[Rfam]
RNA sequence: UGGUUUUAGGUCUGUGGUUGAAAAUCGAAGCCAGUCGCAGGCAAAACGAUCCACGUAAGCAGGCGAAAUGCCGGUGAGCAUGGUGCGGCUUAGAAGUAAGUCCGUCCGGGUGCGUAAUACACACCCGAGAGAGUUAGUAGUGGGAAGCGAAAGCCCAGUAGCGAAACCUCCAGGCGGCGGAUGUGGGGGCAAAGACCAGGUCAGCUGAAAGCA
Numbered sequence: 001u002g003g004u005u006u007u008a009g010g011u012c013u014g015u016g017g018u019u020g021a022a023a024a025u026c027g028a029a030g031c032c033a034g035u036c037g038c039a040g041g042c043a044a045a046a047c048g049a050u051c052c053a054c055g056u057a058a059g060c061a062g063g064c065g066a067a068a069u070g071c072c073g074g075u076g077a078g079c080a081u082g083g084u085g086c087g088g089c090u091u092a093g094a095a096g097u098a099a100g101u102c103c104g105u106c107c108g109g110g111u112g113c114g115u116a117a118u119a120c121a122c123a124c125c126c127g128a129g130a131g132a133g134u135u136a137g138u139a140g141u142g143g144g145a146a147g148c149g150a151a152a153g154c155c156c157a158g159u160a161g162c163g164a165a166a167c168c169u170c171c172a173g174g175c176g177g178c179g180g181a182u183g184u185g186g187g188g189g190c191a192a193a194g195a196c197c198a199g200g201u202c203a204g205c206u207g208a209a210a211g212c213a
Stems, first nucleotide, its partner, number of pairs: 001213002004210006012204003015198005028184001030182001031041001033090007050083002058075001060073001062071001081191001102177005107127005131170003140162002147154002
Dot-bracket structure: ((.((((((..((((((((........(.([.(((((((.]........((......(.(.(........).).).....[)))))))))...........((((((((((...........)))))...(((......((.....((....))......)).....)))..)))))....).)......]..)))))...))))))))).))
The record is a 213-nucleotide RNA, which matches "raiA RNA" in Rfam. It is annotated as a riboswitch. The family's consensus secondary structure is taken from published work.